The family of this 100-nucleotide RNA from Haloarcula hispanica is "L4-Archaeoglobi ribosomal protein leades". The base pairs follow the family's consensus structure, which is taken from published work. Rfam classes the family as a cis-regulatory leader. Rfam's curators put it in the seed alignment. NCBI's taxonomy places the organism under Archaea, Methanobacteriota, Halobacteriales, Haloarculaceae, Haloarcula hispanica.
[Rfam]
Nucleotides: 100
Base pairs, nucleotide, nucleotide: 001100002099003098004097005096008091009090010089011088012087013086015041016040017039018038023035024034025033026032027031043085044084045083046082047081048080049079050076051075
Number, partner (000 for none) and nucleotide at each position: 001100c002099u003098g004097a005096u006000g007000g008091g009090c010089g011088c012087g013086u014000c015041c016040g017039g018038g019000u020000c021000a022000a023035u024034u025033g026032c027031g028000g029000c030000a031027u032026g033025c034024a035023a036000c037000a038018c039017c040016c041015g042000a043085u044084c045083u046082c047081u048080c049079u050076u051075c052000c053000c054000g055000u056000c057000c058000c059000a060000g061000c062000g063000g064000a065000u066000a067000u068000g069000g070000a071000c072000g073000u074000g075051g076050a077000a078000c079049a080048g081047g082046g083045g084044g085043a086013g087012c088011g089010c090009g091008u092000g093000a094000c095000c096005g097004u098003c099002a100001g